[Rfam]
The record is a 67-nucleotide RNA from Pipistrellus kuhlii, which matches "mir-9256 microRNA precursor family" in Rfam. The family has 8 seed sequences and 31,772 matches in Rfam 15.1. The base pairs follow the family's consensus structure, which was predicted with RNAalifold. It scores 80 bits against the family's covariance model. Rfam links the family to the GO terms miRNA-mediated post-transcriptional gene silencing and RISC complex.

RNA sequence: GUAUACUCUGAGUGGCCAGAUUAUUAUAAUUUCUGAACAGAUAAUAAUCUGGCCACUCAGUGUAUAU
Numbered sequence: 001g002u003a004u005a006c007u008c009u010g011a012g013u014g015g016c017c018a019g020a021u022u023a024u025u026a027u028a029a030u031u032u033c034u035g036a037a038c039a040g041a042u043a044a045u046a047a048u049c050u051g052g053c054c055a056c057u058c059a060g061u062g063u064a065u066a067u
Base pairs, nucleotide, nucleotide: 004064005063006062008060009059010058011057012056013055014054015053016052017051019049020048021047022046023045024044025043026042027041